[Rfam]
Description
The record is a 173-nucleotide RNA from Clostridium sp. CAG:632, which matches "Lysine riboswitch aptamer" in Rfam. Taxonomically the source falls in Clostridium (Bacteria, Bacillati, Bacillota, Clostridia). Riboswitches are metabolite binding domains within certain messenger RNAs that serve as precision sensors for their corresponding targets.
RNA sequence: AUUUCAGGUAGAGGCGCAAGAAUCAUGAGUAAAUCUUUCGACAUGGUAAGGCAUGAGUGAAGAAGAUUGAAAGGGAGGAUUGCCGAAGAGCUUAUUAUCCUUACAGAUAAGACUCUGGGCAUGCAGUGAAGAAUUGUAUGACUGUCAUCGCAAGAUGGAGGGCUACUUUGAUU
Dot-bracket structure: .....((((((....((((...((.......(((((((.......................)))))))......))...))))...((((((((((.........)))))).))))((.((((((((.....)))))))).)).(((((....)))))....)))))).....